[Rfam]
RNA sequence: GAGAUAGAAGUGAGAAUCUUCUAGGCCGAAUAUCUAAGGUUUCCAGGGUAAAGCUGAUCUGCCCUGGGUAAGUCGGGACCUAAGGCGAGGCUGAAAAGCGUAGCCGAUGGAUAACAGGUUGAAAUUCCUGUACCUCAUACAAACAGAACUGUGGGGACACGGAAGGGUAGGAAGAGCCGGGAAUGGAAAGACCGGUUCAAGCACAAAGGCUAGCCUGGGAGGCAAAUCCCUCAGGCGUUGCUAAAGUGUGAAGAGGAGCGAACAUAAAGUAGCGAAGCUUCCGAACCCAUGCCGUCGAGAAAAGCCGCUAUAGCUUUGUAUGAGCCCGUACCGUAAACCGACACAGGUGGAUGAGGAGAGAAUCCUAAGGCCGA
Dot-bracket structure: ....((((((.......))))))((((....((((..((...((((((...((.....)).))))))......((((.((...(((.(.(((....))).).)))...))...(((((........)))))..((((((((((.......((((....((((..(((..(((((.(((((...........)))))((..((((...(((..(((((((.((.....)))))))))...)))...))))...))...((.(........).))....)))))...)))...)))).........))))......))))))))))))))..)).....((......)).)))).((((.....))))..))))..
RNA: Bacterial large subunit ribosomal RNA, nucleotides 1301 to 1674
Organism: Herbinix luporum